This 51-nucleotide RNA sequence belongs to the Rfam family "6A RNA".
The base pairs follow the family's consensus structure, which is taken from published work.
It is annotated as a small RNA.
RNA sequence: UGAUUUCGUUGUAGAGCGCAACGAACAAAAAAUAAAGAAAGCUCACGGAGA
Numbered sequence: 001u002g003a004u005u006u007c008g009u010u011g012u013a014g015a016g017c018g019c020a021a022c023g024a025a026c027a028a029a030a031a032a033u034a035a036a037g038a039a040a041g042c043u044c045a046c047g048g049a050g051a
Stems, first nucleotide, its partner, number of pairs: 006024006014044004